RNA sequence: GGUCAUGAGUGCCAGCGCAAAACCCCGGUUUGCUGGCCGGCAACCCUCCUCUCGCGGCGGGGUGCCCCGGGUGACGACCAGGCUGCGGUCGACCGACCGCGGCAAGCGCGGGCG
Dot-bracket structure: ((((....(.((((((....((......)).)))))))(((..(((.((......))..))).))).........))))..(((((((((....)))))))))...........
This 114-nucleotide sequence from Flavimobilis soli belongs to the Rfam family "SAM (S-adenosyl methionine) riboswitch aptamer". Clan: SAM clan.